[Rfam]
RNA: Eukaryotic large subunit ribosomal RNA, nucleotides 2689 to 3177
RNA sequence: CUUUAGAUCUGAGAAGCUUUCAGCUAGAGGUGCCAGAAAAGUUACCACAGGGAUGCCCCUCGGCAAGCAAUGCCAGCCAUACCACUUCCACGCAGUAAGGGGCGGGCAACGUCAGCAAUGGCGGCUAAGAGUAUGGUGCGACUAGGGCGUCGCUGCUUGUGGCACCGACAAGCAGCCAAGUCAUUUGCUGGCCACUAUGACUUGGUGUGAUUUAUGGCCUUUGUAGUAAAGCCUCUCGAUACGUUCGUAGAAGGGGGUGAUCUACAAUUGUGAUUUGACUGUGCUGUGCUUCAUGUCGUUCGCUAACGCUAAGGCCAGCCAGCUUAUCCCAGUGGUAGAUGAUGACAUUCACUCCCCAGACCAAUGCUUAUGCGUUGCGAUGGGCUGGCCUUGACUGGCUUUGCUGGUCCUGGCCAACUACACGACUAUCGCUAUUUGUCCUUUUCGAAGGACAUAAGCGCCUGUGCCGUUAUGGCAAGAAGUCUGAAG
Numbered sequence: 001c002u003u004u005a006g007a008u009c010u011g012a013g014a015a016g017c018u019u020u021c022a023g024c025u026a027g028a029g030g031u032g033c034c035a036g037a038a039a040a041g042u043u044a045c046c047a048c049a050g051g052g053a054u055g056c057c058c059c060u061c062g063g064c065a066a067g068c069a070a071u072g073c074c075a076g077c078c079a080u081a082c083c084a085c086u087u088c089c090a091c092g093c094a095g096u097a098a099g100g101g102g103c104g105g106g107c108a109a110c111g112u113c114a115g116c117a118a119u120g121g122c123g124g125c126u127a128a129g130a131g132u133a134u135g136g137u138g139c140g141a142c143u144a145g146g147g148c149g150u151c152g153c154u155g156c157u158u159g160u161g162g163c164a165c166c167g168a169c170a171a172g173c174a175g176c177c178a179a180g181u182c183a184u185u186u187g188c189u190g191g192c193c194a195c196u197a198u199g200a201c202u203u204g205g206u207g208u209g210a211u212u213u214a215u216g217g218c219c220u221u222u223g224u225a226g227u228a229a230a231g232c233c234u235c236u237c238g239a240u241a242c243g244u245u246c247g248u249a250g251a252a253g254g255g256g257g258u259g260a261u262c263u264a265c266a267a268u269u270g271u272g273a274u275u276u277g278a279c280u281g282u283g284c285u286g287u288g289c290u291u292c293a294u295g296u297c298g299u300u301c302g303c304u305a306a307c308g309c310u311a312a313g314g315c316c317a318g319c320c321a322g323c324u325u326a327u328c329c330c331a332g333u334g335g336u337a338g339a340u341g342a343u344g345a346c347a348u349u350c351a352c353u354c355c356c357c358a359g360a361c362c363a364a365u366g367c368u369u370a371u372g373c374g375u376u377g378c379g380a381u382g383g384g385c386u387g388g389c390c391u392u393g394a395c396u397g398g399c400u401u402u403g404c405u406g407g408u409c410c411u412g413g414c415c416a417a418c419u420a421c422a423c424g425a426c427u428a429u430c431g432c433u434a435u436u437u438g439u440c441c442u443u444u445u446c447g448a449a450g451g452a453c454a455u456a457a458g459c460g461c462c463u464g465u466g467c468c469g470u471u472a473u474g475g476c477a478a479g480a481a482g483u484c485u486g487a488a489g
Stems, first nucleotide, its partner, number of pairs: 001479003006476001009475003